Lysine riboswitch aptamer: a 178-nucleotide RNA from Ferrimonas balearica. Rfam's curators write: Riboswitches are metabolite binding domains within certain messenger RNAs that serve as precision sensors for their corresponding targets. Allosteric rearrangement of mRNA structure is mediated by ligand binding, and this results in modulation of gene expression. This family includes riboswitches that sense lysine in a number of genes involved in lysine metabolism, including lysC. The source organism's lineage runs through Bacteria, Pseudomonadati, Gammaproteobacteria, Ferrimonadaceae and Ferrimonas balearica. The base pairs follow the family's consensus structure, which is taken from published work.
RNA sequence: AGAAACAGAAGAGGUGCGUUGCCCAGGUAAGCCGGAGCAGGAGAGCGAACUCCGCCAAUGCCGGCCCAGGGGGAGCAACGCCGAGAUGGUGAACCGUUCGACUCGGAACACCGUCGGCCACCGGGGCUGAAUCUCCGGGGCUGUCACCAUUGGAUGUAGGUGGAGAGCUUCUGGAAGA
Numbered sequence: 001a002g003a004a005a006c007a008g009a010a011g012a013g014g015u016g017c018g019u020u021g022c023c024c025a026g027g028u029a030a031g032c033c034g035g036a037g038c039a040g041g042a043g044a045g046c047g048a049a050c051u052c053c054g055c056c057a058a059u060g061c062c063g064g065c066c067c068a069g070g071g072g073g074a075g076c077a078a079c080g081c082c083g084a085g086a087u088g089g090u091g092a093a094c095c096g097u098u099c100g101a102c103u104c105g106g107a108a109c110a111c112c113g114u115c116g117g118c119c120a121c122c123g124g125g126g127c128u129g130a131a132u133c134u135c136c137g138g139g140g141c142u143g144u145c146a147c148c149a150u151u152g153g154a155u156g157u158a159g160g161u162g163g164a165g166a167g168c169u170u171c172u173g174g175a176a177g178a
Base pairs, nucleotide, nucleotide: 006173007172008171009170010169011168016081017080018079019078020077021076022075024073031065032064033063034062035061037059085115086114087113088112089111090110091109094106095105096104116142117141118140119139121138122137123136124135125134126133144163145162146161147160148159